A member of the RNA family "cold-seep-1 RNA", 152 nucleotides long. By type it is a small RNA.

RNA sequence: GGUCUCCACCAAAGCUGUGCCGCGAGGCCAUGCGGGAGUGAGAGAGGCUUCACCUUCGGGUGAUGCCAUUCCUUCCACAUCUGGUGCCGGGCAUCGGUCUGCCAGGGUCGUGCGCAUUGCGGCGCCGCCCGGGACCGAAGGCACGGGGGCGA
Numbered sequence: 001g002g003u004c005u006c007c008a009c010c011a012a013a014g015c016u017g018u019g020c021c022g023c024g025a026g027g028c029c030a031u032g033c034g035g036g037a038g039u040g041a042g043a044g045a046g047g048c049u050u051c052a053c054c055u056u057c058g059g060g061u062g063a064u065g066c067c068a069u070u071c072c073u074u075c076c077a078c079a080u081c082u083g084g085u086g087c088c089g090g091g092c093a094u095c096g097g098u099c100u101g102c103c104a105g106g107g108u109c110g111u112g113c114g115c116a117u118u119g120c121g122g123c124g125c126c127g128c129c130c131g132g133g134a135c136c137g138a139a140g141g142c143a144c145g146g147g148g149g150c151g152a
Base pairs, nucleotide, nucleotide: 002150003149004148005147006146007145014033015032017031018030019028020027021026046067047066048065050063051062052061053060054059094138095137096136097135098134099133100132105130106129107128108127112125113124114123115122